[Rfam]
RNA sequence: GAAACGGGAACCCGGCACCGCGACAGCGGGUCAGACCAGGAGUGCCCCACCGCAAGGUGAGGCGGCA
Numbered sequence: 001g002a003a004a005c006g007g008g009a010a011c012c013c014g015g016c017a018c019c020g021c022g023a024c025a026g027c028g029g030g031u032c033a034g035a036c037c038a039g040g041a042g043u044g045c046c047c048c049a050c051c052g053c054a055a056g057g058u059g060a061g062g063c064g065g066c067a
Stems, first nucleotide, its partner, number of pairs: 011040002014037002018029004044063003048059004
A member of the RNA family "Transposase-2 RNA" from Frankia sp. QA3, 67 nucleotides long. It is annotated as a small RNA. Taxonomically the source falls in Frankia (Bacteria, Bacillati, Actinomycetota, Frankiaceae). The base pairs follow the family's consensus structure, which is taken from published work.